[Rfam]
ZMP/ZTP riboswitch aptamer (pfl RNA motif): a 104-nucleotide RNA sequence from Kineococcus radiotolerans. The organism belongs to Kineococcus radiotolerans, within Bacteria.
RNA sequence: GACCGUGGCCGCGACUGGCGCAGGGUGGGUCACCACCGGGGAGCGGCCACGGGCACCCGCAGGGGCGUCCGCCGUUCACGGGGUCGUCCGCCUGGGCCUCGCGU
Numbered sequence: 001g002a003c004c005g006u007g008g009c010c011g012c013g014a015c016u017g018g019c020g021c022a023g024g025g026u027g028g029g030u031c032a033c034c035a036c037c038g039g040g041g042a043g044c045g046g047c048c049a050c051g052g053g054c055a056c057c058c059g060c061a062g063g064g065g066c067g068u069c070c071g072c073c074g075u076u077c078a079c080g081g082g083g084u085c086g087u088c089c090g091c092c093u094g095g096g097c098c099u100c101g102c103g104u
Base pairs, nucleotide, nucleotide: 003052004051005050006049007048008047009046010045011044012043015040016039017092018091019090020089025036026035027034028033081099082098083097084096085095
It is one of the family's seed sequences.